A member of the RNA family "mir-1255 microRNA precursor family" from Macaca fascicularis, 72 nucleotides long.
The source organism's lineage runs through Eukaryota, Craniata, Euarchontoglires, Catarrhini and Macaca.
RNA sequence: UCUCAAGGAUGAGCAAAGGAAGUAGUUUUUUUAGAUUCCAAGGAAACUACCUACUUUGCUCAUCUUUGAGAA
Dot-bracket structure: (((((.((((((((((((.(.(((((((((...........))))))))).).)))))))))))).))))).
It scores 79 bits against the family's covariance model.